[Rfam]
The record is a 270-nucleotide RNA sequence from Aneurinibacillus migulanus, which matches "BsrG" in Rfam. It is annotated as a small RNA. Rfam 15.1 lists 614 matches to the family in 343 species. The literature on the family includes a 2015 paper in Mol Microbiol by Jahn et al., "Against the mainstream: the membrane-associated type I toxin BsrG from Bacillus subtilis interferes with cell envelope biosynthesis without increasing membrane permeability". The organism belongs to Aneurinibacillus, within Bacteria. It scores 119 bits against the family's covariance model. Gene Ontology terms of the family: autolysis and toxin activity. Rfam describes the family as follows. bsrE, bsrG and bsrH pair through intermolecular interactions with antisense sRNAs. They form type I toxin/antitoxin system that includes an mRNA encoding for a short, toxic peptide (bsrE, bsrG and bsrH) and an antitoxin that is comprised of an antisense RNA. bsrG encodes a 39-amino-acid toxin, and the 180 nucleotide antisense sRNA called SR4 acts as the antitoxin (they overlap by 123 nucleotides). SR4 interaction with the 3'UTR of bsrG RNA promotes bsrG degradation and inhibits its translation.
RNA sequence: UGCACAAUUUGAUACGGCUCCUCAAGGGUGGUCUACGGCUCACUCCCUGUAAGAAAGGGGGUGGAGUUUAUGACAGUAUUCGAAUCAUUAAUGUUGAUGAUUGCAUUCGCAACACUAAUUGUAGCUAUACUGUCGUUUAACCAAAAGAAAUAGGCCCCCUUGAGUUUGGACGACCAGGGAACCUAUUUCUAUGACCUGUAAUUAGUCUGAGCCGUCCCCCUAGAGGGAACGUUUAUUGUGCAUGACCGUUUGGUGUUACCAGCACCGAGC
Numbered sequence: 001u002g003c004a005c006a007a008u009u010u011g012a013u014a015c016g017g018c019u020c021c022u023c024a025a026g027g028g029u030g031g032u033c034u035a036c037g038g039c040u041c042a043c044u045c046c047c048u049g050u051a052a053g054a055a056a057g058g059g060g061g062u063g064g065a066g067u068u069u070a071u072g073a074c075a076g077u078a079u080u081c082g083a084a085u086c087a088u089u090a091a092u093g094u095u096g097a098u099g100a101u102u103g104c105a106u107u108c109g110c111a112a113c114a115c116u117a118a119u120u121g122u123a124g125c126u127a128u129a130c131u132g133u134c135g136u137u138u139a140a141c142c143a144a145a146a147g148a149a150a151u152a153g154g155c156c157c158c159c160u161u162g163a164g165u166u167u168g169g170a171c172g173a174c175c176a177g178g179g180a181a182c183c184u185a186u187u188u189c190u191a192u193g194a195c196c197u198g199u200a201a202u203u204a205g206u207c208u209g210a211g212c213c214g215u216c217c218c219c220c221u222a223g224a225g226g227g228a229a230c231g232u233u234u235a236u237u238g239u240g241c242a243u244g245a246c247c248g249u250u251u252g253g254u255g256u257u258a259c260c261a262g263c264a265c266c267g268a269g270c
Base pairs, nucleotide, nucleotide: 001242002241003240004239005238007236008235011232015214016213017212018211019210020209021164022163023162024161025160026159027158028157031155032154033153034152040064041063042062044060045059046058047057048056072134073133074132075131076130077129078128085100086099087098109125110124175193176192215228216227217226218225248270249269250268251267252266253265254264255263256262257261